[Rfam]
Shown here is a 128-nucleotide RNA from Saimiri boliviensis, a member of the family "U11 spliceosomal RNA". For this family Rfam cites "Additional low-abundance human small nuclear ribonucleoproteins: U11, U12, etc" (Montzka and Steitz, Proc Natl Acad Sci U S A, 1988).

RNA sequence: GAGGCUUCUGUUGUGAGUGGCACACAUAGGGCAUUGUUUGCUCUUUGUGGAGAAUCAACAUCAAGAGAUUUCAGAAGCAUGAUUUUUUGGUAUUUGGGUAGCUGGUGAUCAUUGGUCCUGGAGCCCUU
Numbered sequence: 001g002a003g004g005c006u007u008c009u010g011u012u013g014u015g016a017g018u019g020g021c022a023c024a025c026a027u028a029g030g031g032c033a034u035u036g037u038u039u040g041c042u043c044u045u046u047g048u049g050g051a052g053a054a055u056c057a058a059c060a061u062c063a064a065g066a067g068a069u070u071u072c073a074g075a076a077g078c079a080u081g082a083u084u085u086u087u088u089g090g091u092a093u094u095u096g097g098g099u100a101g102c103u104g105g106u107g108a109u110c111a112u113u114g115g116u117c118c119u120g121g122a123g124c125c126c127u128u
Stems, first nucleotide, its partner, number of pairs: 004078005009022005023049004028044006052071005096126004102121004107117004
Dot-bracket structure: ...((((((((((....)))))((((.((((((.....)))))).))))..(((((..........)))))..))))).................((((..((((.((((...)))))))).))))..
About this RNA: It is annotated as a spliceosomal small nuclear RNA.